This 74-nucleotide RNA sequence from Marmota monax belongs to the Rfam family "Small nucleolar RNA SNORD103/SNORD85". The literature on the family includes a 2001 paper in EMBO J by Huttenhofer et al., "RNomics: an experimental approach that identifies 201 candidates for novel, small, non-messenger RNAs in mouse". The pairing is the family consensus, mapped onto this sequence. The source organism's lineage runs through Eukaryota, Opisthokonta, Metazoa, Sciuridae and Marmota. Its family is annotated with nucleolus and RNA processing in the Gene Ontology. A search with the family's covariance model found it, with a score of 56 bits.
[Rfam]
RNA sequence: UCUGGCAAGGCUGAUAUUCACUUGCCCUCACUUAAACCAUAGUUUUGUUGAGUAGAGCAUUAUUCUGAGCCAGU
Numbered sequence: 001u002c003u004g005g006c007a008a009g010g011c012u013g014a015u016a017u018u019c020a021c022u023u024g025c026c027c028u029c030a031c032u033u034a035a036a037c038c039a040u041a042g043u044u045u046u047g048u049u050g051a052g053u054a055g056a057g058c059a060u061u062a063u064u065c066u067g068a069g070c071c072a073g074u
Base pairs, nucleotide, nucleotide: 002073003072004071005070006069